[Rfam]
RNA sequence: AGUUGCCAUUAACUCCGAGCUCUACUUGCUAAGUUCACUGUCGUAAUCGGUCGUGUAAUAAGCAACUGAGCCAGUGGCAUGUUGCCACAAGGGCCUAAUUGGAAAUGAUUAUGCCUCCCGUGUUUGGAAAGGUGUUCCAUGGCGCAACAA
Numbered sequence: 001a002g003u004u005g006c007c008a009u010u011a012a013c014u015c016c017g018a019g020c021u022c023u024a025c026u027u028g029c030u031a032a033g034u035u036c037a038c039u040g041u042c043g044u045a046a047u048c049g050g051u052c053g054u055g056u057a058a059u060a061a062g063c064a065a066c067u068g069a070g071c072c073a074g075u076g077g078c079a080u081g082u083u084g085c086c087a088c089a090a091g092g093g094c095c096u097a098a099u100u101g102g103a104a105a106u107g108a109u110u111a112u113g114c115c116u117c118c119c120g121u122g123u124u125u126g127g128a129a130a131g132g133u134g135u136u137c138c139a140u141g142g143c144g145c146a147a148c149a150a
Stems, first nucleotide, its partner, number of pairs: 003144001006141001011136003015132002019071004026065004033059003074088005091116004096111006117127002
RNA: Molybdenum/Tungsten riboswitch aptamer (Moco RNA motif)
Organism: Vibrio sp. 10N.286.49.B3